[Rfam]
RNA: Mason-Pfizer monkey virus packaging signal
RNA sequence: UGGCGCCCAGCUUGGGGCCAGAGAACGGGGGAUCCAGUAAAGAAUGCUGCUGGGGGCCCAAUAAAAUAAAAUAAAAUAAAGAGGAUUGCGUCUGACAUGAACCUGCCUUCUUUCCUGCACCUCGGUGAGUUGAGCAGCGAUUAUGGGACAGGGCAUUAGCCAGCAUGAGUUAUUUGUACAAGGUCUUAAAGAAACUUUACAGGUACGAGGGGUAAAAGUUACAGUCAAACAGUUGUUAAAAUUUUUUGAUUAUAUUAGAGAUCUCUGCCCUU
Dot-bracket structure: .....(((...((..........))..)))....((((.......))))...............................((((.....(...((.............))...).....))))......(((..(..((....)).).)))....(.((...................................).).)......((((((((..((.(...........).))......))))))))........((.(.(....).).))